This 265-nucleotide RNA from Heterocephalus glaber belongs to the Rfam family "Mason-Pfizer monkey virus packaging signal". It scores 97 bits against the family's covariance model. It is annotated as a cis-regulatory element. Its family is annotated with viral genome packaging in the Gene Ontology. This family represents a group of sequences that are related to the Mason-Pfizer monkey virus (MPMV) packaging signal.
RNA sequence: UGGCGCCCAACGUGGGGGCCCAAGAACGGGGGACCCAGUGAAGAACGCUGCUCGGGAGCCCAAUAAAAUAGAAAAAAGAGGAUUGCGUUUGACGUGAACCUGCCGUCUUUCCUGCACCUAGGUGAGUUGAGCAGCAAUUAUGGGACAGGAGAUUAGCCAACAUGAGUUGUUUGUAAAAGGUCUUAAACUUUACAGACACGAGGGGUAAAGGUUACAGUCAAACAGUUGUUAAAAUUUUUUGAUUAUAUUAGAGAUCUCUGCCCUU
Numbered sequence: 001u002g003g004c005g006c007c008c009a010a011c012g013u014g015g016g017g018g019c020c021c022a023a024g025a026a027c028g029g030g031g032g033a034c035c036c037a038g039u040g041a042a043g044a045a046c047g048c049u050g051c052u053c054g055g056g057a058g059c060c061c062a063a064u065a066a067a068a069u070a071g072a073a074a075a076a077a078g079a080g081g082a083u084u085g086c087g088u089u090u091g092a093c094g095u096g097a098a099c100c101u102g103c104c105g106u107c108u109u110u111c112c113u114g115c116a117c118c119u120a121g122g123u124g125a126g127u128u129g130a131g132c133a134g135c136a137a138u139u140a141u142g143g144g145a146c147a148g149g150a151g152a153u154u155a156g157c158c159a160a161c162a163u164g165a166g167u168u169g170u171u172u173g174u175a176a177a178a179g180g181u182c183u184u185a186a187a188c189u190u191u192a193c194a195g196a197c198a199c200g201a202g203g204g205g206u207a208a209a210g211g212u213u214a215c216a217g218u219c220a221a222a223c224a225g226u227u228g229u230u231a232a233a234a235u236u237u238u239u240u241g242a243u244u245a246u247a248u249u250a251g252a253g254a255u256c257u258c259u260g261c262c263c264u265u
Base pairs, nucleotide, nucleotide: 006032007031008030012027013026036050037049038048039047079119080118081117083114087111091107092106093105094104127148128147129146132144135142136141153192155190156188199241200240201239202238203237204236205235206234209227210226212224250265251264253262255260